[Rfam]
This 176-nucleotide sequence from Paenibacillus macerans belongs to the Rfam family "c-di-AMP riboswitch aptamer (ydaO/yuaA leader)". Rfam links the family to the GO terms cyclic-di-AMP binding and regulation of gene expression. The source organism's lineage runs through Bacteria, Bacillati, Bacillota, Caryophanales and Paenibacillus. Rfam 15.1 lists 7,607 matches to the family in 2,262 species. From the family's description: This family represents a conserved RNA structure found upstream of the ydaO and yuaA genes in Bacillus subtilis and related genes in other bacteria.
RNA sequence: AUAUUUAGAUAGCCAAAACCUGCCUCGGCAGGUGCGGGGGAUGAUUCAGCGAAUAACGGAACGUUAAACGAAACGUGACCGGUUUUCUUGGGGUGAAGCGCUCGCAUUGGGCGCCGGGGAUAAUCCUUUUUCCCGAAUCCGACAACUAACUCCGCAGGCGUAUAAAAGGAGGAAGA
Numbered sequence: 001a002u003a004u005u006u007a008g009a010u011a012g013c014c015a016a017a018a019c020c021u022g023c024c025u026c027g028g029c030a031g032g033u034g035c036g037g038g039g040g041a042u043g044a045u046u047c048a049g050c051g052a053a054u055a056a057c058g059g060a061a062c063g064u065u066a067a068a069c070g071a072a073a074c075g076u077g078a079c080c081g082g083u084u085u086u087c088u089u090g091g092g093g094u095g096a097a098g099c100g101c102u103c104g105c106a107u108u109g110g111g112c113g114c115c116g117g118g119g120a121u122a123a124u125c126c127u128u129u130u131u132c133c134c135g136a137a138u139c140c141g142a143c144a145a146c147u148a149a150c151u152c153c154g155c156a157g158g159c160g161u162a163u164a165a166a167a168g169g170a171g172g173a174a175g176a
Stems, first nucleotide, its partner, number of pairs: 012159003018033005034155006047090002091140003099113004116134004